[Rfam]
RNA sequence: CAGAAGUUUCCUCUACAAAUGGAUAAGAUUUCUUUGUCUUAGGGUAUACGAAUCGUUGAAACAAAGUAGCAAACCCAUGUCUUGCUUUAGCAAGACUGGGGUAUGAUACUUU
Dot-bracket structure: .......(((.(......).))).......................................((((((.((...((..(((((........)))))..))...)).))))))
A member of the RNA family "Plastid-psbA-1 3UTR RNA" from Musa balbisiana, 112 nucleotides long. About the family: Plastid psbA-1 is a non-coding RNA (ncRNA) present in plastids. It was identified in inverted repeat sequences in the 3 prime untranslate region (3UTR) of photosystem II quinone-binding protein (psbA). The family's RNA type in Rfam is cis-regulatory element.